[Rfam]
RNA sequence: AGACACCUUCGUUAGGUGAGACUCCUAUAUAGAGAUAAGCUACUGCCCAAAAAGGUCGAGAGACUCCAAUGGGUCAACAAGAAUCAUCGAGAUAAGGUGAUUUUUAACGUAGCUGGAAUCAUUCCUAUGCUAUAUAGUGUUAAAACUAAACGAAUGGAGGAUAUU
Numbered sequence: 001a002g003a004c005a006c007c008u009u010c011g012u013u014a015g016g017u018g019a020g021a022c023u024c025c026u027a028u029a030u031a032g033a034g035a036u037a038a039g040c041u042a043c044u045g046c047c048c049a050a051a052a053a054g055g056u057c058g059a060g061a062g063a064c065u066c067c068a069a070u071g072g073g074u075c076a077a078c079a080a081g082a083a084u085c086a087u088c089g090a091g092a093u094a095a096g097g098u099g100a101u102u103u104u105u106a107a108c109g110u111a112g113c114u115g116g117a118a119u120c121a122u123u124c125c126u127a128u129g130c131u132a133u134a135u136a137g138u139g140u141u142a143a144a145a146c147u148a149a150a151c152g153a154a155u156g157g158a159g160g161a162u163a164u165u
Base pairs, nucleotide, nucleotide: 006160007159008158009157010156011151012150013095015147016146017145020141021140022139025137026136027135028134029133030132031131032130039113040112041111042110043109045074046073047072048071049070054065055064056063057062080104081103082102083101086098087097088096115125116124117123
This 165-nucleotide RNA sequence from Cerasibacillus quisquiliarum belongs to the Rfam family "M-box riboswitch aptamer (ykoK leader)".
Rfam 15.1 lists 1,095 matches to the family in 932 species.
Rfam's curators write: M-box riboswitch, also know as ykoK leader is described as a metaloregulatory RNA that sense divalent metals and function as a genetic control element of genes related to divalent metal transport in bacteria. It was first reported upstream of the B.subtilis ykoK gene and genes with related functions in other bacteria.
The pairing is the family consensus, mapped onto this sequence.